[Rfam]
RNA sequence: GUAGCCGGGCUCGUGGGUAGGAGCUGCGUUCACUUCUGCUUCCGCCCUGCAAGCCCGGUAGCU
Numbered sequence: 001g002u003a004g005c006c007g008g009g010c011u012c013g014u015g016g017g018u019a020g021g022a023g024c025u026g027c028g029u030u031c032a033c034u035u036c037u038g039c040u041u042c043c044g045c046c047c048u049g050c051a052a053g054c055c056c057g058g059u060a061g062c063u
Stems, first nucleotide, its partner, number of pairs: 004059008013050005018044001020042005
The family of this 63-nucleotide RNA from Sarcophilus harrisii is "mir-1549 microRNA precursor family". The family's consensus secondary structure was predicted with RNAalifold. The family has 2 seed sequences and 2 matches in Rfam 15.1. Rfam's curators put it in the seed alignment. The source organism's lineage runs through Eukaryota, Opisthokonta, Deuterostomia, Amniota and Sarcophilus. Gene Ontology terms of the family: RISC complex and miRNA-mediated post-transcriptional gene silencing.